[Rfam]
RNA sequence: GCAUGUGUAUCUACUUCAAUCCACAUGUGUCGCAGUGGAAUGGAAUGGAAUUUAGUUUAAUUUCACUCCAAUCCACUUCAACACAUGUGGAUUGAGAUGAAUACAUGC
Numbered sequence: 001g002c003a004u005g006u007g008u009a010u011c012u013a014c015u016u017c018a019a020u021c022c023a024c025a026u027g028u029g030u031c032g033c034a035g036u037g038g039a040a041u042g043g044a045a046u047g048g049a050a051u052u053u054a055g056u057u058u059a060a061u062u063u064c065a066c067u068c069c070a071a072u073c074c075a076c077u078u079c080a081a082c083a084c085a086u087g088u089g090g091a092u093u094g095a096g097a098u099g100a101a102u103a104c105a106u107g108c
Stems, first nucleotide, its partner, number of pairs: 004107007012099002016095015032079001035076005041070003046065002